[Rfam]
RNA sequence: CGAGUGAUGUGUGGUUAAGGAACUCGGCAAAUUGCCUCCGUAACUUCGGGAGAAGGAGGGCCCUUGACCGUGGUGCGUGCGCACGGAAGCGGUUGGGGGUUGCAGAGGCCAGGGGGAAGCGACUGUUUACUAAAAACACAGGUCCAUGCGAAGCCGUGAGGUGAGGUAUAUGGACUGACGCCUGCCCGGUGCUGGAACGUUAAGAGGAUCCAUCAAGGCCUUUGGCCUGCAGUGGUGAAUUGAAGCGCCAGUAAACGGCGGUGGUAACUAUAACCAUCCUAAGGUAGCGAAAUUCCUUGUCGGGUAAGUUCCGACCUGCACGAAUGGCGUAACGACUUCCCCGCUGUCUCAACCACAUGCUCG
Dot-bracket structure: ((((....((((((((.(((..............(((((....(....).....)))))((((((((((((.................))))))))))))(...).......(((((((((..(((.........)))..(((((((((...(((....)))...)..))))))))..((((.(((..(((((((..(((...((....((((..((((.....))))...))))....))...))))))))..)))))((((((.......))))))(...).....(.........((((((.....))))))).........))))...)).)))))))....))).)))))))).))))
Numbered sequence: 001c002g003a004g005u006g007a008u009g010u011g012u013g014g015u016u017a018a019g020g021a022a023c024u025c026g027g028c029a030a031a032u033u034g035c036c037u038c039c040g041u042a043a044c045u046u047c048g049g050g051a052g053a054a055g056g057a058g059g060g061c062c063c064u065u066g067a068c069c070g071u072g073g074u075g076c077g078u079g080c081g082c083a084c085g086g087a088a089g090c091g092g093u094u095g096g097g098g099g100u101u102g103c104a105g106a107g108g109c110c111a112g113g114g115g116g117a118a119g120c121g122a123c124u125g126u127u128u129a130c131u132a133a134a135a136a137c138a139c140a141g142g143u144c145c146a147u148g149c150g151a152a153g154c155c156g157u158g159a160g161g162u163g164a165g166g167u168a169u170a171u172g173g174a175c176u177g178a179c180g181c182c183u184g185c186c187c188g189g190u191g192c193u194g195g196a197a198c199g200u201u202a203a204g205a206g207g208a209u210c211c212a213u214c215a216a217g218g219c220c221u222u223u224g225g226c227c228u229g230c231a232g233u234g235g236u237g238a239a240u241u242g243a244a245g246c247g248c249c250a251g252u253a254a255a256c257g258g259c260g261g262u263g264g265u266a267a268c269u270a271u272a273a274c275c276a277u278c279c280u281a282a283g284g285u286a287g288c289g290a291a292a293u294u295c296c297u298u299g300u301c302g303g304g305u306a307a308g309u310u311c312c313g314a315c316c317u318g319c320a321c322g323a324a325u326g327g328c329g330u331a332a333c334g335a336c337u338u339c340c341c342c343g344c345u346g347u348c349u350c351a352a353c354c355a356c357a358u359g360c361u362c363g
Stems, first nucleotide, its partner, number of pairs: 001363004009358008018349003035059005044049001060100012101105001113342007120334002124138003141176008149166001153162003179329004184259003189256002191252005198247003204241002210235004216228004260278006279283001289316001299315006